The family of this 73-nucleotide RNA sequence is "tRNA". By type it is a transfer RNA. The family's consensus secondary structure is taken from published work.
RNA sequence: GGGGGCGUAGCUCAGAUGGUAGAGCGCUCGCUUAGCAUGCGAGAGGUACCGGGAUCGAUACCCGGCGCCUCCA
Numbered sequence: 001g002g003g004g005g006c007g008u009a010g011c012u013c014a015g016a017u018g019g020u021a022g023a024g025c026g027c028u029c030g031c032u033u034a035g036c037a038u039g040c041g042a043g044a045g046g047u048a049c050c051g052g053g054a055u056c057g058a059u060a061c062c063c064g065g066c067g068c069c070u071c072c073a
Stems, first nucleotide, its partner, number of pairs: 001072007010025004027043005049065005